[Rfam]
Shown here is a 69-nucleotide RNA sequence from Dicaeum eximium, a member of the family "mir-8/mir-141/mir-200 microRNA precursor family".
RNA sequence: GUGGGCAUCUUACUAGACAGUGCUGGAUUUUGUGCCUCGACUCUAACACUGUCUGGUAACGAUGUUUAA
Numbered sequence: 001g002u003g004g005g006c007a008u009c010u011u012a013c014u015a016g017a018c019a020g021u022g023c024u025g026g027a028u029u030u031u032g033u034g035c036c037u038c039g040a041c042u043c044u045a046a047c048a049c050u051g052u053c054u055g056g057u058a059a060c061g062a063u064g065u066u067u068a069a
Base pairs, nucleotide, nucleotide: 002068003067004066005065006064007063008062009061010059011058012057013056014055015054016053017052018051019050020049021048022047024045025044026043027042